The family of this 114-nucleotide RNA sequence from Vibrio ezurae is "TPP riboswitch aptamer (THI element)". A search with the family's covariance model found it, with a score of 63 bits. Taxonomically the source falls in Vibrio ezurae (Bacteria, Pseudomonadati, Vibrionales, Vibrionaceae).
RNA sequence: AUCUGCUUGUCGGAGUGCUGAAGUGUUGAUCACAAGAAGCUGAGACCGUGAAUACGGAAUCCGUAGAACCUGAUACAGGAUAAUACCUGCGAAGGAAACAAGGUGGUCAAUUCU
Numbered sequence: 001a002u003c004u005g006c007u008u009g010u011c012g013g014a015g016u017g018c019u020g021a022a023g024u025g026u027u028g029a030u031c032a033c034a035a036g037a038a039g040c041u042g043a044g045a046c047c048g049u050g051a052a053u054a055c056g057g058a059a060u061c062c063g064u065a066g067a068a069c070c071u072g073a074u075a076c077a078g079g080a081u082a083a084u085a086c087c088u089g090c091g092a093a094g095g096a097a098a099c100a101a102g103g104u105g106g107u108c109a110a111u112u113c114u
Stems, first nucleotide, its partner, number of pairs: 006102005011063004016057001017040003047056003069095003076089004